[Rfam]
RNA sequence: GACGUUGCGUGGAUGCGCGCGACUACCUACAUCCACCGAUGCCGGGUUUACCCGGCUAUGGCGAUAAAAGGCGGCGCGCAAUAGAUGCAGCGGACCCGGGGGCGGUACCCGGCGGCUCCACCAUUUGCGCCGGCCUGCGGCCCGUUUCGGCGGGCGGCUGGACGGCGCAACUGACGGGGCCGAACUAGGAUCGACGUGUGUUGAAAAACGCUGCUCUUCGCUCGGAAUGGGACCACCGCAACGGCCCAUUACACAAGUGCCAACGAUAACGAAGCACUCGCGAUUGCGGCGUAACUGAGGGCCUCACGGCCUAAGGUUACUCCAAAAUAGCGCGGUUGGACCCCACCGGGCAACAGAAGGGGAAUCCA
Numbered sequence: 001g002a003c004g005u006u007g008c009g010u011g012g013a014u015g016c017g018c019g020c021g022a023c024u025a026c027c028u029a030c031a032u033c034c035a036c037c038g039a040u041g042c043c044g045g046g047u048u049u050a051c052c053c054g055g056c057u058a059u060g061g062c063g064a065u066a067a068a069a070g071g072c073g074g075c076g077c078g079c080a081a082u083a084g085a086u087g088c089a090g091c092g093g094a095c096c097c098g099g100g101g102g103c104g105g106u107a108c109c110c111g112g113c114g115g116c117u118c119c120a121c122c123a124u125u126u127g128c129g130c131c132g133g134c135c136u137g138c139g140g141c142c143c144g145u146u147u148c149g150g151c152g153g154g155c156g157g158c159u160g161g162a163c164g165g166c167g168c169a170a171c172u173g174a175c176g177g178g179g180c181c182g183a184a185c186u187a188g189g190a191u192c193g194a195c196g197u198g199u200g201u202u203g204a205a206a207a208a209c210g211c212u213g214c215u216c217u218u219c220g221c222u223c224g225g226a227a228u229g230g231g232a233c234c235a236c237c238g239c240a241a242c243g244g245c246c247c248a249u250u251a252c253a254c255a256a257g258u259g260c261c262a263a264c265g266a267u268a269a270c271g272a273a274g275c276a277c278u279c280g281c282g283a284u285u286g287c288g289g290c291g292u293a294a295c296u297g298a299g300g301g302c303c304u305c306a307c308g309g310c311c312u313a314a315g316g317u318u319a320c321u322c323c324a325a326a327a328u329a330g331c332g333c334g335g336u337u338g339g340a341c342c343c344c345a346c347c348g349g350g351c352a353a354c355a356g357a358a359g360g361g362g363a364a365u366c367c368a
Stems, first nucleotide, its partner, number of pairs: 041056005060222005070215007086200003090197003096112005113182007223238003228248003233244002333348004339367001344362001
Shown here is a 368-nucleotide RNA sequence from Sphingomonas sp. Leaf343, a member of the family "Alphaproteobacteria transfer-messenger RNA". A search with the family's covariance model found it, with a score of 200 bits. Pairs were carried over by alignment from the consensus structure, which is taken from published work. Taxonomically the source falls in Sphingomonas (Bacteria, Pseudomonadota, Alphaproteobacteria, Sphingomonadaceae). Rfam describes the family as follows. Bacterial tmRNA, also known as 10Sa RNA or SsrA, is named for its dual tRNA and mRNA-like properties.